Description
Shown here is a 38-nucleotide sequence from Candidatus Symbiopectobacterium sp. PLON1, a member of the family "JUMPstart RNA". Rfam 15.1 lists 288 matches to the family in 230 species.

RNA sequence: CAGCACGUUGGCGGCUAUAAGCCAAGGGCGGUAGCGUG
Numbered sequence: 001c002a003g004c005a006c007g008u009u010g011g012c013g014g015c016u017a018u019a020a021g022c023c024a025a026g027g028g029c030g031g032u033a034g035c036g037u038g
Stems, first nucleotide, its partner, number of pairs: 008025005
Description
The organism belongs to Symbiopectobacterium, within Bacteria.